RNA sequence: GCGCGUGGGGAGGGAGGAAACAGUGCCUAGUGCGGCGCCGGAGCUCGCCAGCACGCGGAAGGAGGUAGCGGCGGUGGCGGAGCGCCGGCAAGCUCUCCGCGCCCUGGCCGCCGUCCUCCUCACCUCACUCCUGCGUGCUGGCGAGCUCCGGUGCCGCACUAGGCACCGUUCCCUCCCUCCCCGCGCGC
Numbered sequence: 001g002c003g004c005g006u007g008g009g010g011a012g013g014g015a016g017g018a019a020a021c022a023g024u025g026c027c028u029a030g031u032g033c034g035g036c037g038c039c040g041g042a043g044c045u046c047g048c049c050a051g052c053a054c055g056c057g058g059a060a061g062g063a064g065g066u067a068g069c070g071g072c073g074g075u076g077g078c079g080g081a082g083c084g085c086c087g088g089c090a091a092g093c094u095c096u097c098c099g100c101g102c103c104c105u106g107g108c109c110g111c112c113g114u115c116c117u118c119c120u121c122a123c124c125u126c127a128c129u130c131c132u133g134c135g136u137g138c139u140g141g142c143g144a145g146c147u148c149c150g151g152u153g154c155c156g157c158a159c160u161a162g163g164c165a166c167c168g169u170u171c172c173c174u175c176c177c178u179c180c181c182c183g184c185g186c187g188c
Stems, first nucleotide, its partner, number of pairs: 001188017019170003023166036060129002062126005067120002070117002073114001076112005081105002084102002086099003
Shown here is a 188-nucleotide sequence from Oryza sativa, a member of the family "MIR1437 microRNA precursor family". The base pairs follow the family's consensus structure, which was predicted with RNAalifold. Rfam links the family to the GO terms RISC complex and miRNA-mediated post-transcriptional gene silencing. The family has 2 seed sequences and 6 matches in Rfam 15.1.